The family of this 166-nucleotide part of an RNA from Tortispora caseinolytica is "Eukaryotic small subunit ribosomal RNA".
RNA sequence: CACCGCCCGUCGCUACUACCGAUUGAAUGGCUUAGUGAGGCCUUCGGACGUGCUCUUUAGAGGGGCAACCCUCUUGCUGAGCAUGAAAGUUGUACAAACUUGGUCAUUUAGAGGAAGUAAAAGUCGUAACAAGGUAUCUGUAGAAGAAUCUGCAGAUGGAUCAUUU
Numbered sequence: 001c002a003c004c005g006c007c008c009g010u011c012g013c014u015a016c017u018a019c020c021g022a023u024u025g026a027a028u029g030g031c032u033u034a035g036u037g038a039g040g041c042c043u044u045c046g047g048a049c050g051u052g053c054u055c056u057u058u059a060g061a062g063g064g065g066c067a068a069c070c071c072u073c074u075u076g077c078u079g080a081g082c083a084u085g086a087a088a089g090u091u092g093u094a095c096a097a098a099c100u101u102g103g104u105c106a107u108u109u110a111g112a113g114g115a116a117g118u119a120a121a122a123g124u125c126g127u128a129a130c131a132a133g134g135u136a137u138c139u140g141u142a143g144a145a146g147a148a149u150c151u152g153c154a155g156a157u158g159g160a161u162c163a164u165u166u
Base pairs, nucleotide, nucleotide: 003133005130008126009125011123014119015118016117017116019114020113023110025109026108027107028106029105030104031103032102034100035099036098039095042092045089049085050084051083052082053081054080055079058076059075060073061072062071063070135158136157137156138155139154140153141152142151143150144149
The match comes from Rfam's covariance-model search (1530 bits). Rfam links the family to the GO terms ribosome and structural constituent of ribosome.